Shown here is a 221-nucleotide RNA, a member of the family "IS605-orfB-I RNA".
RNA sequence: GUCGUAUAAAGAUGUAUUAGAUGCAAGACAAUCUAGCAUUUCCCUUUACGGCAUUGUACUUAAUUUAGAAGUUCAAACAGCAGUAAUUGUUGCAUGGUUAAGAAUCGAAAUAAUUUGAGUUUGAAUGGAAUAGGUUAACCGUAUGACCUUGUGUUGAAAAAUACUAAAUAUAAUCUUAAAAUAACAAUUUUUAAGUUUUCGUUAUUUUGAGUUACGGUGCA
Dot-bracket structure: ((((((.(.((((((..((((((.....).)))))))))))...).))))))..................((((((((......(((((((....((.(...).))..)))))))...)))))))).....[[[[[.(((((((]]]]].(((((....))))).....)....(((((((((((...............))))))))))).))))))...